[Rfam]
RNA sequence: UAAAUAAAAUUGGAGACUCUAUACAAUGUCUCUAUGUUGCCAAUAACAGAGGAAGAGAAACAAGGCAAGAUAUCGUUUCACUCGCCCUUAUAUUUGGUUGGCGAUUUGAUUGUUGCUUGUCUACAU
Dot-bracket structure: ......((....(((((..........)))))....)).........................((((((..((((......(((((..(.......)..)))))..)))).....)))).))....
Numbered sequence: 001u002a003a004a005u006a007a008a009a010u011u012g013g014a015g016a017c018u019c020u021a022u023a024c025a026a027u028g029u030c031u032c033u034a035u036g037u038u039g040c041c042a043a044u045a046a047c048a049g050a051g052g053a054a055g056a057g058a059a060a061c062a063a064g065g066c067a068a069g070a071u072a073u074c075g076u077u078u079c080a081c082u083c084g085c086c087c088u089u090a091u092a093u094u095u096g097g098u099u100g101g102c103g104a105u106u107u108g109a110u111u112g113u114u115g116c117u118u119g120u121c122u123a124c125a126u
Stems, first nucleotide, its partner, number of pairs: 007038002013032005064122002066119004072110004082104005089097001
The family of this 126-nucleotide RNA sequence from Aquilegia coerulea is "Small nucleolar RNA snoR111". Rfam 15.1 lists 533 matches to the family in 223 species. A search with the family's covariance model found it, with a score of 78 bits. It is annotated as an H/ACA-box small nucleolar RNA. On this family, see Marker et al., Curr Biol 2002: "Experimental RNomics: identification of 140 candidates for small non-messenger RNAs in the plant Arabidopsis thaliana". Its family is annotated with nucleolus and RNA processing in the Gene Ontology.